[Rfam]
A member of the RNA family "Eukaryotic large subunit ribosomal RNA" from Kwoniella shandongensis, 388 nucleotides of a longer RNA. The family's consensus secondary structure is taken from published work. Lineage of the source: Eukaryota > Dikarya > Tremellomycetes > Cryptococcaceae > Kwoniella. The match comes from Rfam's covariance-model search (3394 bits).
RNA sequence: GGAGUGUCGUCGUGAUAGUAAUUGAGGGUAGUACGAGAGGAACUGCUCAUUCGUAUAAUUGGUAUUUGCGUCUGUCCGAUCGGGCAAUGACGCGAAGCUAUCAUACGCCAGAUUAUGGCUGAACGCCUCUAAGUCAGAAUCUGUACUAGAAACGACGAUGUUGGUCCCGCUAAUUUUAGCUGUGUUUGAAUAGGCUUCGGCUGUGAACCAUACUCGGGGGUCGGGCUCUUGGGCGGAAAUGUCCUGUGAGUCUCCUCCUUUAGAAAUAAGAAUAUUGGCGGGGGUGAAUCCUUUGCAGACGACUUGAAUGGGAACGGGGUGCUGUAAGUGGUAGAGUAGCCUUGUUGCUACGAUCCACUGAGGCUAAGCCCUUGUUCUAUAGAUUUGU
Numbered sequence: 001g002g003a004g005u006g007u008c009g010u011c012g013u014g015a016u017a018g019u020a021a022u023u024g025a026g027g028g029u030a031g032u033a034c035g036a037g038a039g040g041a042a043c044u045g046c047u048c049a050u051u052c053g054u055a056u057a058a059u060u061g062g063u064a065u066u067u068g069c070g071u072c073u074g075u076c077c078g079a080u081c082g083g084g085c086a087a088u089g090a091c092g093c094g095a096a097g098c099u100a101u102c103a104u105a106c107g108c109c110a111g112a113u114u115a116u117g118g119c120u121g122a123a124c125g126c127c128u129c130u131a132a133g134u135c136a137g138a139a140u141c142u143g144u145a146c147u148a149g150a151a152a153c154g155a156c157g158a159u160g161u162u163g164g165u166c167c168c169g170c171u172a173a174u175u176u177u178a179g180c181u182g183u184g185u186u187u188g189a190a191u192a193g194g195c196u197u198c199g200g201c202u203g204u205g206a207a208c209c210a211u212a213c214u215c216g217g218g219g220g221u222c223g224g225g226c227u228c229u230u231g232g233g234c235g236g237a238a239a240u241g242u243c244c245u246g247u248g249a250g251u252c253u254c255c256u257c258c259u260u261u262a263g264a265a266a267u268a269a270g271a272a273u274a275u276u277g278g279c280g281g282g283g284g285u286g287a288a289u290c291c292u293u294u295g296c297a298g299a300c301g302a303c304u305u306g307a308a309u310g311g312g313a314a315c316g317g318g319g320u321g322c323u324g325u326a327a328g329u330g331g332u333a334g335a336g337u338a339g340c341c342u343u344g345u346u347g348c349u350a351c352g353a354u355c356c357a358c359u360g361a362g363g364c365u366a367a368g369c370c371c372u373u374g375u376u377c378u379a380u381a382g383a384u385u386u387g388u
Base pairs, nucleotide, nucleotide: 006159007158008157009156010155011154012153013152016148017147018146019145021051023049024048025047026046028044052107053106054105055104056103060100061099062098067094068093069092070091071090073086074085075084076083077082109143110142111141116136117135118134119133120132166282167281168280169279170278171277172276286386287385288384289383290382292306295303311378312377313376314375315374316373317371318370319369321364322363328358329357330356331355333354336351337350338349339348340347